[Rfam]
RNA sequence: AGAUUUAGGAAAGCUCUCGUAUGCAUAUUGGGCAAUCUAAAAUAAUAAUUAGACCUAGGGAACAAUCCCUCUCAGCGAAGGCCGAAAGGAGGCUAGCCAUGCCCUUAGUAGGACUAGCAAAAUGAGGGGGGUAGCAUCAGUGGUGAGUUCGUUGGAUGGCUGAAGCCCUGAGUACAGGGCAGUCGUCAGUGGUUCGACGCCUAGGAUGAUAGGUCUCGAGAUGCCACGUGGACGAGGGCAUGCCCACAGCACAUCUUAGCCCGAGCGGGGGUCGCCCGGGUGAAAACGGUAAAUACAGACCGCUACGAAUACAGCCUGAUAGGGUGCUGCAGAGGCCCACUGUAAUGCUACUAAAAAACUCUGCUGUACAUGGCAC
Numbered sequence: 001a002g003a004u005u006u007a008g009g010a011a012a013g014c015u016c017u018c019g020u021a022u023g024c025a026u027a028u029u030g031g032g033c034a035a036u037c038u039a040a041a042a043u044a045a046u047a048a049u050u051a052g053a054c055c056u057a058g059g060g061a062a063c064a065a066u067c068c069c070u071c072u073c074a075g076c077g078a079a080g081g082c083c084g085a086a087a088g089g090a091g092g093c094u095a096g097c098c099a100u101g102c103c104c105u106u107a108g109u110a111g112g113a114c115u116a117g118c119a120a121a122a123u124g125a126g127g128g129g130g131g132u133a134g135c136a137u138c139a140g141u142g143g144u145g146a147g148u149u150c151g152u153u154g155g156a157u158g159g160c161u162g163a164a165g166c167c168c169u170g171a172g173u174a175c176a177g178g179g180c181a182g183u184c185g186u187c188a189g190u191g192g193u194u195c196g197a198c199g200c201c202u203a204g205g206a207u208g209a210u211a212g213g214u215c216u217c218g219a220g221a222u223g224c225c226a227c228g229u230g231g232a233c234g235a236g237g238g239c240a241u242g243c244c245c246a247c248a249g250c251a252c253a254u255c256u257u258a259g260c261c262c263g264a265g266c267g268g269g270g271g272u273c274g275c276c277c278g279g280g281u282g283a284a285a286a287c288g289g290u291a292a293a294u295a296c297a298g299a300c301c302g303c304u305a306c307g308a309a310u311a312c313a314g315c316c317u318g319a320u321a322g323g324g325u326g327c328u329g330c331a332g333a334g335g336c337c338c339a340c341u342g343u344a345a346u347g348c349u350a351c352u353a354a355a356a357a358a359c360u361c362u363g364c365u366g367u368a369c370a371u372g373g374c375a376c
Stems, first nucleotide, its partner, number of pairs: 001017002068129006075118002080115002082112002087106003091103003130352007138342006144313002147310006154256005159250004165180006183235005189227005194219004199214005236245003259281005265275004287302004314325004327366001329364006
Dot-bracket structure: ((.............))..................................................((((((.((...((((...(((.(((.......))))))....)).)).)).....))))))(((((((.((((((((.((((((.(((((((((..((((((....))))))..(((((.(((((((((.(((((......))))).))))...)))))...)))))(((....))).)))).)))))..(((((.((((...)))).))))).....((((........))))..)))))).))((((....)))).[.[[[[[[..))))))...)))))))......]]]]]].]..........
About this RNA:
Rfam assigns this 376-nucleotide RNA from Orthopestivirus bovis to the family "Pestivirus internal ribosome entry site (IRES) including 5'UTR SLI". Rfam's curators put it in the seed alignment. A reference for the family is Gosavi et al. (2022), "Insights into the secondary and tertiary structure of the Bovine Viral Diarrhea Virus Internal Ribosome Entry Site", RNA Biol. Its family is annotated with ribosome binding in the Gene Ontology. The pairing is the family consensus, mapped onto this sequence. The source organism's lineage runs through Viruses, Kitrinoviricota, Pestiviridae, Orthopestivirus and Bovine viral diarrhea virus isolates and strains. Rfam describes the family as follows. This family represents the internal ribosome entry site (IRES) of the the pestiviruses. The pestivirus IRES allows cap and end-independent translation of mRNA in the host cell. The IRES achieves this by mediating the internal initiation of translation by recruiting a ribosomal 43S pre-initiation complex directly to the initiation codon and eliminates the requirement for eIF4F. The classical swine virus UTR described in appears to be longer at the 5' end than other pestivirus UTRs. Clan: IRES1 clan.